[Rfam]
RNA sequence: CUUUUUUGCUAUCUGCCGGUUUCAAAGAUUCGAACCUGCGGCAGGUUCGGGUCGAACGUAGUGAGACAACGGAGCCGCUUGCGGCGACGGCCCGAAGGGCGAGCGAAGCGAGUCAUCCUGCACGACCCACCA
Numbered sequence: 001c002u003u004u005u006u007u008g009c010u011a012u013c014u015g016c017c018g019g020u021u022u023c024a025a026a027g028a029u030u031c032g033a034a035c036c037u038g039c040g041g042c043a044g045g046u047u048c049g050g051g052u053c054g055a056a057c058g059u060a061g062u063g064a065g066a067c068a069a070c071g072g073a074g075c076c077g078c079u080u081g082c083g084g085c086g087a088c089g090g091c092c093c094g095a096a097g098g099g100c101g102a103g104c105g106a107a108g109c110g111a112g113u114c115a116u117c118c119u120g121c122a123c124g125a126c127c128c129a130c131c132a
Stems, first nucleotide, its partner, number of pairs: 014122003018118002021115001031101002035098001046096004053063002070089002076086003
Dot-bracket structure: .............(((.((.(.........((..(..........((((...((.......))......((....(((.....))).))...)))).).)).............).)).)))..........

This 132-nucleotide RNA sequence from Kosakonia cowanii belongs to the Rfam family "RtT RNA". For this family Rfam cites "A novel RNA product of the tyrT operon of Escherichia coli" (Bosl and Kersten, Nucleic Acids Res, 1991). Lineage of the source: Bacteria > Pseudomonadati > Gammaproteobacteria > Enterobacterales > Kosakonia cowanii. Rfam classes the family as a cis-regulatory element.